[Rfam]
RNA sequence: ACUGUAAUGCAGGGGAACUCGCAUGUGGUUCGCGAGUUGAGAAAGGCCUGAGCCUGACCCUUAGAACCUGUUGGUUAAGACCAUCGUAGGGAGCAGUAAAUGAGCAAUA
Numbered sequence: 001a002c003u004g005u006a007a008u009g010c011a012g013g014g015g016a017a018c019u020c021g022c023a024u025g026u027g028g029u030u031c032g033c034g035a036g037u038u039g040a041g042a043a044a045g046g047c048c049u050g051a052g053c054c055u056g057a058c059c060c061u062u063a064g065a066a067c068c069u070g071u072u073g074g075u076u077a078a079g080a081c082c083a084u085c086g087u088a089g090g091g092a093g094c095a096g097u098a099a100a101u102g103a104g105c106a107a108u109a
Base pairs, nucleotide, nucleotide: 006097008095009094010093011061012060013059014058017037018036019035020034021033044055045054046053047052067090068089069088070087072083073082074081
Dot-bracket structure: .....(.(((((((..(((((...........)))))......((((....))))..)))).....((((.(((......)))...))))..))).)............